[Rfam]
RNA sequence: GAGCAAUGAUAGAUUUCUGCGCUCGUAGUGAUUGGUUGGGUCCAUCACAGCCGUCUGAUUCCCAGACGGAUAAGACGCGCAUCUGAGCUC
Numbered sequence: 001g002a003g004c005a006a007u008g009a010u011a012g013a014u015u016u017c018u019g020c021g022c023u024c025g026u027a028g029u030g031a032u033u034g035g036u037u038g039g040g041u042c043c044a045u046c047a048c049a050g051c052c053g054u055c056u057g058a059u060u061c062c063c064a065g066a067c068g069g070a071u072a073a074g075a076c077g078c079g080c081a082u083c084u085g086a087g088c089u090c
Stems, first nucleotide, its partner, number of pairs: 001090004
RNA: small nucleolar RNA snoR114
Organism: Zea mays